[Rfam]
RNA: UnaL2 LINE 3' element
Organism: Muraenolepis orangiensis
RNA sequence: UGAAGGCACUAUUGUAAGUCGCUUUGGACAAAAGUGUCUGCUAAAUGACUAUGU
Numbered sequence: 001u002g003a004a005g006g007c008a009c010u011a012u013u014g015u016a017a018g019u020c021g022c023u024u025u026g027g028a029c030a031a032a033a034g035u036g037u038c039u040g041c042u043a044a045a046u047g048a049c050u051a052u053g054u
Stems, first nucleotide, its partner, number of pairs: 013043001014041003020036006